A member of the RNA family "Lysine riboswitch aptamer" from Lysinibacillus sp. 2017, 178 nucleotides long. The source organism's lineage runs through Bacteria, Bacillota, Bacilli, Bacillaceae and Lysinibacillus. A search with the family's covariance model found it, with a score of 121 bits.

[Rfam]
RNA sequence: UCAAUCGAUAGAGGUGCAGUAUUCAAUAGUACAUUGCUUGAGGAAGAACAAUUCCGAUGACAGCAAUCGAAAGGGGAGCUUGCCGAAGUGAAUUACGUAUUGUUCGCGGAAUUUGCUGGUGUUGCAUUUAACAGAUGUAAGACUGUCAGAGCUAAUGUUCUGGAGAGCUAUCCGUGAA
Numbered sequence: 001u002c003a004a005u006c007g008a009u010a011g012a013g014g015u016g017c018a019g020u021a022u023u024c025a026a027u028a029g030u031a032c033a034u035u036g037c038u039u040g041a042g043g044a045a046g047a048a049c050a051a052u053u054c055c056g057a058u059g060a061c062a063g064c065a066a067u068c069g070a071a072a073g074g075g076g077a078g079c080u081u082g083c084c085g086a087a088g089u090g091a092a093u094u095a096c097g098u099a100u101u102g103u104u105c106g107c108g109g110a111a112u113u114u115g116c117u118g119g120u121g122u123u124g125c126a127u128u129u130a131a132c133a134g135a136u137g138u139a140a141g142a143c144u145g146u147c148a149g150a151g152c153u154a155a156u157g158u159u160c161u162g163g164a165g166a167g168c169u170a171u172c173c174g175u176g177a178a
Base pairs, nucleotide, nucleotide: 007172008171009170010169011168016083017082018081019080022077023076024075033067034066035065036064037063038062087117088116089115090114091113092112093111094110096108097107098106118144119143120142122140123139124138125137126136127135128134146163147162148161149160150159151158152157